[Rfam]
RNA: TPP riboswitch aptamer (THI element)
RNA sequence: AGUGCUCUAACGGGGUGCCGGCGGUCGCUUGACCGGCCGGCUGAGAGGCCAAGGGGAAACCCGGCCAACCCGCUGAACCUGAUCCGGCUUGUACCGGCGGAGGGAUUAGACGCUCUUCCACC
Numbered sequence: 001a002g003u004g005c006u007c008u009a010a011c012g013g014g015g016u017g018c019c020g021g022c023g024g025u026c027g028c029u030u031g032a033c034c035g036g037c038c039g040g041c042u043g044a045g046a047g048g049c050c051a052a053g054g055g056g057a058a059a060c061c062c063g064g065c066c067a068a069c070c071c072g073c074u075g076a077a078c079c080u081g082a083u084c085c086g087g088c089u090u091g092u093a094c095c096g097g098c099g100g101a102g103g104g105a106u107u108a109g110a111c112g113c114u115c116u117u118c119c120a121c122c
Stems, first nucleotide, its partner, number of pairs: 006110005011072004017041005048065003078103003084097004